[Rfam]
RNA sequence: UUAAACCUAAACGACGUAAGCCCUACCUCUCAUACAUCCUUACGGCUCCGAAGCCGAUCCAGUGUGAAUAAGUCUUUACAAAAACAU
Numbered sequence: 001u002u003a004a005a006c007c008u009a010a011a012c013g014a015c016g017u018a019a020g021c022c023c024u025a026c027c028u029c030u031c032a033u034a035c036a037u038c039c040u041u042a043c044g045g046c047u048c049c050g051a052a053g054c055c056g057a058u059c060c061a062g063u064g065u066g067a068a069u070a071a072g073u074c075u076u077u078a079c080a081a082a083a084a085c086a087u
Base pairs, nucleotide, nucleotide: 035066036065039062040061043056044055045054046053047052
This 87-nucleotide RNA sequence from Bacillus sp. J14TS2 belongs to the Rfam family "BsrC". It is annotated as a small RNA. Rfam's curators write: The 301 nucleotide sequence from Kouji Nakamura has been trimmed to a highly conserved ~85 nucleotide long core to form this family.